[Rfam]
Ribosomal protein L10 leader: a 147-nucleotide RNA sequence from Scopulibacillus darangshiensis. This family is a putative r-protein leader autoregulatory structure found in B. subtilis and other low-GC Gram-positive bacteria. It is located in the 5' untranslated regions of mRNAs encoding ribosomal proteins L10 and L12 (rplJ-rplL). It is annotated as a cis-regulatory leader. Lineage of the source: Bacteria > Bacilli > Caryophanales > Sporolactobacillaceae > Scopulibacillus.

RNA sequence: UAAAAUAUAAUGAACAUACCGUAGACAGCAGGAGCGUAAUUUACGCUUAAAUCUCCUGCCGAGGUGCUUGUGAGACUCUAGAUAACGUUGUUAGAUAGAUUAUCCGUGCCUUCAUGUCUAUGACAUGAAGGCUUUUUUAAUAUAAAU
Numbered sequence: 001u002a003a004a005a006u007a008u009a010a011u012g013a014a015c016a017u018a019c020c021g022u023a024g025a026c027a028g029c030a031g032g033a034g035c036g037u038a039a040u041u042u043a044c045g046c047u048u049a050a051a052u053c054u055c056c057u058g059c060c061g062a063g064g065u066g067c068u069u070g071u072g073a074g075a076c077u078c079u080a081g082a083u084a085a086c087g088u089u090g091u092u093a094g095a096u097a098g099a100u101u102a103u104c105c106g107u108g109c110c111u112u113c114a115u116g117u118c119u120a121u122g123a124c125a126u127g128a129a130g131g132c133u134u135u136u137u138u139a140a141u142a143u144a145a146a147u
Base pairs, nucleotide, nucleotide: 028059029058030057031056032055033054034046035045036044108132109131110130111129112128113127114126115125116124117123